[Rfam]
RNA sequence: UUGGCUGGCUGGGCAGUCGCCGCUUACUUCGGUAGGGGGAGGAAAGUCCGGACUUCGCAGGGUAAAGUGCCAGGUAACGCCUGGGGAGCGAAAGCUCACGGCAAGUGCAGCAGAAAAUAUACCGCCGAUGGCGUUUGUGAAAACGGACGAACAGGUAAGGUUGAAAUGGUGCGGUAAGAGCGCACCGCGCUUAUGGCAACAUAAGUGGCAUGGUAAACCCCACUUGAAGUAAGACCAAAUAGGGAUCCUACAGGUGUGACCCGCACUGGAUCCGGGUAGGUUGCUUGAGCUUUGUGGCGACGCAAAGCCUAGAAGAAUGACUGUCCCAGACAGAAUCCGGCUUACAGGCCAGCCAAAUUU
Numbered sequence: 001u002u003g004g005c006u007g008g009c010u011g012g013g014c015a016g017u018c019g020c021c022g023c024u025u026a027c028u029u030c031g032g033u034a035g036g037g038g039g040a041g042g043a044a045a046g047u048c049c050g051g052a053c054u055u056c057g058c059a060g061g062g063u064a065a066a067g068u069g070c071c072a073g074g075u076a077a078c079g080c081c082u083g084g085g086g087a088g089c090g091a092a093a094g095c096u097c098a099c100g101g102c103a104a105g106u107g108c109a110g111c112a113g114a115a116a117a118u119a120u121a122c123c124g125c126c127g128a129u130g131g132c133g134u135u136u137g138u139g140a141a142a143a144c145g146g147a148c149g150a151a152c153a154g155g156u157a158a159g160g161u162u163g164a165a166a167u168g169g170u171g172c173g174g175u176a177a178g179a180g181c182g183c184a185c186c187g188c189g190c191u192u193a194u195g196g197c198a199a200c201a202u203a204a205g206u207g208g209c210a211u212g213g214u215a216a217a218c219c220c221c222a223c224u225u226g227a228a229g230u231a232a233g234a235c236c237a238a239a240u241a242g243g244g245a246u247c248c249u250a251c252a253g254g255u256g257u258g259a260c261c262c263g264c265a266c267u268g269g270a271u272c273c274g275g276g277u278a279g280g281u282u283g284c285u286u287g288a289g290c291u292u293u294g295u296g297g298c299g300a301c302g303c304a305a306a307g308c309c310u311a312g313a314a315g316a317a318u319g320a321c322u323g324u325c326c327c328a329g330a331c332a333g334a335a336u337c338c339g340g341c342u343u344a345c346a347g348g349c350c351a352g353c354c355a356a357a358u359u360u
Base pairs, nucleotide, nucleotide: 001356002355003354004353005352006351007350008349009348010347011345012325013324014323015322016321017320018319020039021038023036024035025034026033027032044343045342046341048340049339050338051337052336053229054228055227056226060262061261062260063259065225066224067223068222069221070084071083072082073081074080085099086097087096088095089094100220101219105218106217107214108213122160123159124156125155126154129151168186169185170184171183172182173181187209188207189206190205191204192203193202194201195200233282234281235280236279243273244272245271246270247269248268253267254266255265256264257263289308290307291306292305293304294303295302296301